[Rfam]
RNA: U2 spliceosomal RNA
Organism: Sphaerobolus stellatus
RNA sequence: UUACCACUCUGGCCUUUUGGCUUAGAUCAAGUGUAGUAUCUGUUCUUUUUAGUUUAACCACUGAAAUGACCGCACAGCGGUCUCUUAUGGUUAUCAAAUUUUUGCCGCCUCGUCCUUUGACCUCUGCUUGCACGUCGAAGGGCACGAUGACCUUGCUAUUGUAGUACCGGCUUGUGUCGUCAGGGGAU
Number, nucleotide and partner (000 for none) at each position: 001u000002u000003a000004c000005c000006a000007c000008u026009c025010u024011g022012g021013c020014c019015u000016u000017u000018u000019g014020g013021c012022u011023u000024a010025g009026a008027u000028c000029a000030a000031g000032u000033g000034u000035a000036g000037u000038a000039u000040c000041u000042g000043u000044u000045c000046u000047u066048u065049u064050u063051a062052g061053u000054u000055u000056a000057a000058c000059c000060a000061c052062u051063g050064a049065a048066a047067u000068g082069a081070c080071c079072g078073c077074a000075c000076a000077g073078c072079g071080g070081u069082c068083u000084c000085u000086u000087a000088u000089g000090g000091u000092u000093a000094u000095c000096a000097a000098a000099u000100u000101u000102u000103u000104g000105c000106c000107g000108c000109c000110u000111c000112g143113u142114c141115c140116u139117u138118u137119g136120a000121c000122c000123u134124c000125u132126g131127c000128u000129u000130g000131c126132a125133c000134g123135u000136c119137g118138a117139a116140g115141g114142g113143c112144a000145c000146g181147a180148u179149g178150a177151c176152c174153u000154u000155g171156c170157u169158a000159u000160u000161g000162u000163a000164g000165u000166a000167c000168c000169g157170g156171c155172u000173u000174g152175u000176g151177u150178c149179g148180u147181c146182a000183g000184g000185g000186g000187a000188u000